[Rfam]
RNA sequence: UUUUAAGCAUAAAUAUGUCCCAUGUAAUAUUGGAGAUAUAUUUAUACUAAAA
Numbered sequence: 001u002u003u004u005a006a007g008c009a010u011a012a013a014u015a016u017g018u019c020c021c022a023u024g025u026a027a028u029a030u031u032g033g034a035g036a037u038a039u040a041u042u043u044a045u046a047c048u049a050a051a052a
Stems, first nucleotide, its partner, number of pairs: 006048002009045004014040003018036002021033001022031001

This 52-nucleotide sequence from Camelus dromedarius belongs to the Rfam family "mir-1302 microRNA precursor family".
The source organism's lineage runs through Eukaryota, Eumetazoa, Amniota, Tylopoda and Camelus.
Gene Ontology terms of the family: RISC complex and miRNA-mediated post-transcriptional gene silencing.
For this family Rfam cites "Application of massively parallel sequencing to microRNA profiling and discovery in human embryonic stem cells" (Morin et al., Genome Res, 2008).
The match comes from Rfam's covariance-model search (64 bits).